[Rfam]
RNA sequence: CCAAACAUUGAUUGUCCAAACGCAAUUCUUGGUUAUCCAACAACUCACAAGAACUGUGUAUGGACAUCAGUUAUUGG
Numbered sequence: 001c002c003a004a005a006c007a008u009u010g011a012u013u014g015u016c017c018a019a020a021c022g023c024a025a026u027u028c029u030u031g032g033u034u035a036u037c038c039a040a041c042a043a044c045u046c047a048c049a050a051g052a053a054c055u056g057u058g059u060a061u062g063g064a065c066a067u068c069a070g071u072u073a074u075u076g077g
Base pairs, nucleotide, nucleotide: 002076003075004074007071009069010068011067012066014065015064016063017062018061021058022057023056024055026053027052028051029050030049031048

The family of this 77-nucleotide RNA from Bugula neritina is "mir-219 microRNA precursor family". Rfam 15.1 lists 1,318 matches to the family in 774 species. The family's consensus secondary structure was predicted with RNAalifold. A reference for the family is Lai et al. (2003), "Computational identification of Drosophila microRNA genes", Genome Biol. Gene Ontology terms of the family: RISC complex and miRNA-mediated post-transcriptional gene silencing. Taxonomically the source falls in Bugula (Eukaryota, Opisthokonta, Metazoa, Gymnolaemata).